RNA: Streptomyces sRNA 4677
RNA sequence: AGCUCCGGUGCCGUCGGCGCCUUCCCCAAGCAAGAACUUCGGGGAAAGCACCCCACCAAGCCCCACCCUUUCCCGUCCGAGGCACGUGAUCACUCGGGUGGGUGAACAUCACCGGCUCAGCUGGAUUUUCGGACCCCCAACGCCUCUACGCUCAGCGCACACCACCCGAAAAGACUUCGGCCCCCGCCGGGACUGGCAUCCCGGUGCGAGGGCCUAACCACCCAGGAAACGAGACCUUUCCCG
Numbered sequence: 001a002g003c004u005c006c007g008g009u010g011c012c013g014u015c016g017g018c019g020c021c022u023u024c025c026c027c028a029a030g031c032a033a034g035a036a037c038u039u040c041g042g043g044g045a046a047a048g049c050a051c052c053c054c055a056c057c058a059a060g061c062c063c064c065a066c067c068c069u070u071u072c073c074c075g076u077c078c079g080a081g082g083c084a085c086g087u088g089a090u091c092a093c094u095c096g097g098g099u100g101g102g103u104g105a106a107c108a109u110c111a112c113c114g115g116c117u118c119a120g121c122u123g124g125a126u127u128u129u130c131g132g133a134c135c136c137c138c139a140a141c142g143c144c145u146c147u148a149c150g151c152u153c154a155g156c157g158c159a160c161a162c163c164a165c166c167c168g169a170a171a172a173g174a175c176u177u178c179g180g181c182c183c184c185c186g187c188c189g190g191g192a193c194u195g196g197c198a199u200c201c202c203g204g205u206g207c208g209a210g211g212g213c214c215u216a217a218c219c220a221c222c223c224a225g226g227a228a229a230c231g232a233g234a235c236c237u238u239u240c241c242c243g
Stems, first nucleotide, its partner, number of pairs: 007222004016077004090105006120156005179214005185208003189202004225241005